Listeria sRNA sbrA: a 66-nucleotide sequence from Lederbergia galactosidilytica.
The family's RNA type in Rfam is small RNA.
The base pairs follow the family's consensus structure, which was predicted with WAR.
It scores 75 bits against the family's covariance model.
The organism belongs to Lederbergia, within Bacteria.

[Rfam]
RNA sequence: AUACAUCUAGAUCCAUACCCCUAAACUCCCUAGAUGUUUUGGACAGCGAAUGGCUGUCCUUUUUUG
Numbered sequence: 001a002u003a004c005a006u007c008u009a010g011a012u013c014c015a016u017a018c019c020c021c022u023a024a025a026c027u028c029c030c031u032a033g034a035u036g037u038u039u040u041g042g043a044c045a046g047c048g049a050a051u052g053g054c055u056g057u058c059c060u061u062u063u064u065u066g
Stems, first nucleotide, its partner, number of pairs: 004036006041059007